Shown here is a 108-nucleotide sequence from Endobacterium cereale, a member of the family "Rhizobiales sRNA Atu_At1". The family's consensus secondary structure was predicted with CMfinder. The family has 33 seed sequences and 200 matches in Rfam 15.1. It scores 60 bits against the family's covariance model.
[Rfam]
RNA sequence: GGUCACCGGUACCAAUCGAGCGUGACGGAGACGGUAAACGCUGUGGUUUUCACGAUGUCUCGCUGCGGGCAAUAAAAUGCCAAGCGAGCACCUUUAUCUGUCCGCGGC
Numbered sequence: 001g002g003u004c005a006c007c008g009g010u011a012c013c014a015a016u017c018g019a020g021c022g023u024g025a026c027g028g029a030g031a032c033g034g035u036a037a038a039c040g041c042u043g044u045g046g047u048u049u050u051c052a053c054g055a056u057g058u059c060u061c062g063c064u065g066c067g068g069g070c071a072a073u074a075a076a077a078u079g080c081c082a083a084g085c086g087a088g089c090a091c092c093u094u095u096a097u098c099u100g101u102c103c104g105c106g107g108c
Stems, first nucleotide, its partner, number of pairs: 006107003010022001012020001024102006033092003039067003043063003068081003
Dot-bracket structure: .....(((.(.(.......).).((((((...(((...(((.(((...............))).)))(((........)))........)))....))))))..))).